[Rfam]
RNA sequence: UAUAUUGAUUAGCAAAAUUAGAGAAAUCUAAUGUCGCAAAGCUAUAGGGUCCGCAAGGAUAGCCAGUUGCAAUU
Numbered sequence: 001u002a003u004a005u006u007g008a009u010u011a012g013c014a015a016a017a018u019u020a021g022a023g024a025a026a027u028c029u030a031a032u033g034u035c036g037c038a039a040a041g042c043u044a045u046a047g048g049g050u051c052c053g054c055a056a057g058g059a060u061a062g063c064c065a066g067u068u069g070c071a072a073u074u
Stems, first nucleotide, its partner, number of pairs: 012037002017032006040068004047064002049060004
The family of this 74-nucleotide RNA from Butyrivibrio sp. Su6 is "c-di-GMP-I riboswitch aptamer". Pairs were carried over by alignment from the consensus structure, which is taken from published work. It scores 52 bits against the family's covariance model.